[Rfam]
RNA sequence: CUUGGGCGGGGAGGGGGGUCCCUCAGCCCAGAUUGCAAGAGGGCGCAGGCCAGGUCGAGGGACCCCUCCAGUGCAUG
Dot-bracket structure: ..((.(..((....((((((((((.(((..(.((((........)))).)..))).)))))))))).))..).))..
Numbered sequence: 001c002u003u004g005g006g007c008g009g010g011g012a013g014g015g016g017g018g019u020c021c022c023u024c025a026g027c028c029c030a031g032a033u034u035g036c037a038a039g040a041g042g043g044c045g046c047a048g049g050c051c052a053g054g055u056c057g058a059g060g061g062a063c064c065c066c067u068c069c070a071g072u073g074c075a076u077g
Stems, first nucleotide, its partner, number of pairs: 003075002006072001009069002015066010026055003031050001033048004